c-di-AMP riboswitch aptamer (ydaO/yuaA leader): a 164-nucleotide sequence from Arthrobacter sp. Bz4. Taxonomically the source falls in Arthrobacter (Bacteria, Bacillati, Actinomycetota, Actinomycetes).
RNA sequence: AGGUUCCGUUCGCACAAUUCGCAUGGCAGAGGCGGGGGAACCAAUUAGUGGAUUUCGCAAGAAAUCCUUGGGGUUAAGUCGUCUGAUUCCACUGGGAAUCAGAGGGCCGGGUGACUCCCAUCCGAAUCCGACAGCUCACCUCGCAGGCAAUUGGGAGAGGCAAU
Numbered sequence: 001a002g003g004u005u006c007c008g009u010u011c012g013c014a015c016a017a018u019u020c021g022c023a024u025g026g027c028a029g030a031g032g033c034g035g036g037g038g039a040a041c042c043a044a045u046u047a048g049u050g051g052a053u054u055u056c057g058c059a060a061g062a063a064a065u066c067c068u069u070g071g072g073g074u075u076a077a078g079u080c081g082u083c084u085g086a087u088u089c090c091a092c093u094g095g096g097a098a099u100c101a102g103a104g105g106g107c108c109g110g111g112u113g114a115c116u117c118c119c120a121u122c123c124g125a126a127u128c129c130g131a132c133a134g135c136u137c138a139c140c141u142c143g144c145a146g147g148c149a150a151u152u153g154g155g156a157g158a159g160g161c162a163a164u
Stems, first nucleotide, its partner, number of pairs: 012148002018031003032144006042070002071129003079106002082103008109123004